[Rfam]
RNA sequence: CACCCUCCUUUCACUUUGCCAGUUAGACAGUUCUUGUCUUGAUUGGUCAUUCAAGGUGGGUAAAGUGUAUUUCCUUUCUGUAACCCAAGCAAAUGAUGCUCAUUUGACUUGGAUCCUGUGAGAGGAGACAGUU
Numbered sequence: 001c002a003c004c005c006u007c008c009u010u011u012c013a014c015u016u017u018g019c020c021a022g023u024u025a026g027a028c029a030g031u032u033c034u035u036g037u038c039u040u041g042a043u044u045g046g047u048c049a050u051u052c053a054a055g056g057u058g059g060g061u062a063a064a065g066u067g068u069a070u071u072u073c074c075u076u077u078c079u080g081u082a083a084c085c086c087a088a089g090c091a092a093a094u095g096a097u098g099c100u101c102a103u104u105u106g107a108c109u110u111g112g113a114u115c116c117u118g119u120g121a122g123a124g125g126a127g128a129c130a131g132u133u
Base pairs, nucleotide, nucleotide: 035062036061037060038059039058043054044053045052046051072126073125074124075123076122077121086111087109090106091105092104093103094102
RNA: Small nucleolar RNA SNORA27